U7 small nuclear RNA: a 59-nucleotide sequence from Prolemur simus. The family's consensus secondary structure was predicted with PFOLD. The match comes from Rfam's covariance-model search (44 bits). From the family's description: Animal histone pre-mRNAs are spliced by a different mechanism than nuclear pre-mRNAs and self-splicing introns. This processing involves the U7 snRNP, which contains only one RNA species: U7. The 5' end of U7 RNA is thought to base-pair to a conserved spacer element downstream of the cleavage site in histone pre-mRNA. This family contains a number of annotated U7 pseudogenes.
RNA sequence: CAAUGUUACAGCUCUUGUAGAAUUUGUCUAACAGGUUUUCUAGUUAUCACUGGAAAUAA
Numbered sequence: 001c002a003a004u005g006u007u008a009c010a011g012c013u014c015u016u017g018u019a020g021a022a023u024u025u026g027u028c029u030a031a032c033a034g035g036u037u038u039u040c041u042a043g044u045u046a047u048c049a050c051u052g053g054a055a056a057u058a059a
Base pairs, nucleotide, nucleotide: 036059037056038055039054040053041052042051043050044049